[Rfam]
RNA sequence: GCGCGUGUCCGGGCCCCUCUGGCCGCUGAGGCGUCGGCGGCGAUGUCGGACAAGGGAA
Dot-bracket structure: .....(((((((.........((((((((....))))))))....)))))))......